Rfam assigns this 151-nucleotide sequence from Callithrix jacchus to the family "U1 spliceosomal RNA". By type it is a spliceosomal small nuclear RNA. From the family's description: U1 is a small nuclear RNA (snRNA) component of the spliceosome (involved in pre-mRNA splicing). Its 5' end forms complementary base pairs with the 5' splice junction, thus defining the 5' donor site of an intron. The base pairs follow the family's consensus structure, which is taken from published work. Rfam links the family to the GO terms mRNA 5'-splice site recognition, pre-mRNA 5'-splice site binding and U1 snRNP.

[Rfam]
RNA sequence: AUACUUACCUGGCAUGGGAGAUACCAUGAUCACGAAGGUGGGUUUCCCAAGGCAAGGUUUAUCCGUUGCCCUCCAGAUGUGCUGACCCCUGCGAUUUCCCCAAAUGUGGGAAACUCGACUGCAUAAUUUGUGUUAAAAAAAUUAAUUUUUA
Numbered sequence: 001a002u003a004c005u006u007a008c009c010u011g012g013c014a015u016g017g018g019a020g021a022u023a024c025c026a027u028g029a030u031c032a033c034g035a036a037g038g039u040g041g042g043u044u045u046c047c048c049a050a051g052g053c054a055a056g057g058u059u060u061a062u063c064c065g066u067u068g069c070c071c072u073c074c075a076g077a078u079g080u081g082c083u084g085a086c087c088c089c090u091g092c093g094a095u096u097u098c099c100c101c102a103a104a105u106g107u108g109g110g111a112a113a114c115u116c117g118a119c120u121g122c123a124u125a126a127u128u129u130g131u132g133u134u135a136a137a138a139a140a141a142u143u144a145a146u147u148u149u150u151a
Stems, first nucleotide, its partner, number of pairs: 012122003016048006024041004049090001051088002056083003060079004092117003095113003099109002140147002